[Rfam]
Rfam assigns this 123-nucleotide sequence from Terrihalobacillus insolitus to the family "ylbH leader". The source organism's lineage runs through Bacteria, Bacillota, Caryophanales, Bacillaceae and Terrihalobacillus. The literature on the family includes a 2004 paper in Proc Natl Acad Sci U S A by Barrick et al., "New RNA motifs suggest an expanded scope for riboswitches in bacterial genetic control". Rfam describes the family as follows. This family is a putative regulatory RNA structure that is found upstream of the ylbH gene in B. subtilis and related low GC Gram-positive bacteria. Its family is annotated with regulation of gene expression in the Gene Ontology.

RNA sequence: AUAAAAAAAGCCUGCAGAGAUCAUCUGCAGGCCCUUUUUGUUUUCUAAUUAGAAAACAAAAAGGCAAAGGGAGAGGAGAAACCGGAGGAAGAACUUAUGGGGAAACGUAAGUCUUCUCCGUGU
Dot-bracket structure: ..........((((((((.....))))))))(((((...((((((......)))))).........)))))...........((((.((((.(((((..........)))))))))))))...
Numbered sequence: 001a002u003a004a005a006a007a008a009a010g011c012c013u014g015c016a017g018a019g020a021u022c023a024u025c026u027g028c029a030g031g032c033c034c035u036u037u038u039u040g041u042u043u044u045c046u047a048a049u050u051a052g053a054a055a056a057c058a059a060a061a062a063g064g065c066a067a068a069g070g071g072a073g074a075g076g077a078g079a080a081a082c083c084g085g086a087g088g089a090a091g092a093a094c095u096u097a098u099g100g101g102g103a104a105a106c107g108u109a110a111g112u113c114u115u116c117u118c119c120g121u122g123u
Stems, first nucleotide, its partner, number of pairs: 011031008032071005040057006083120004088116004093112005